[Rfam]
RNA sequence: GCUUCAUGCCCCGUUGGGCGUUUCCUCCCUUGACUUGGGCCGCUCGCAGCAGUGCGGGCGGCCCCUUUAUUGCCCACC
Numbered sequence: 001g002c003u004u005c006a007u008g009c010c011c012c013g014u015u016g017g018g019c020g021u022u023u024c025c026u027c028c029c030u031u032g033a034c035u036u037g038g039g040c041c042g043c044u045c046g047c048a049g050c051a052g053u054g055c056g057g058g059c060g061g062c063c064c065c066u067u068u069a070u071u072g073c074c075c076a077c078c
Stems, first nucleotide, its partner, number of pairs: 008019004038063009
A member of the RNA family "Makes More Granules Regulator RNA (mmgR)" from Methylocapsa palsarum, 78 nucleotides long. Rfam 15.1 lists 1,791 matches to the family in 918 species. From the family's description: SuhB later renamed mmgR (makes more granules regulator) was a putative non-coding RNA found multiple times in the Agrobacterium tumefaciens genome and related alpha-proteobacteria. Other non-coding RNAs uncovered in the same analysis include: speF, ybhL, metA, and serC.Several studies inSinorhizobium meliloti showed that suhB element is indeed a non-coding RNA:firstly it was detected on Northern blot and called Sm8RNA, secondly in an RNAseq study referred to as SmelC689.The mutant phenotype's (strain lacking the small RNA) cytoplasm contains higher content of polyhydroxybutyrate (PBH)storage granules than wild type strain. The sRNA is required to limit the PBH intracellular accumulation when the nitrogen-fixing Sinorhizobium meliloti is under condition of surplus carbon in relation to nitrogen. The source organism's lineage runs through Bacteria, Pseudomonadota, Alphaproteobacteria, Hyphomicrobiales and Methylocapsa. Pairs were carried over by alignment from the consensus structure.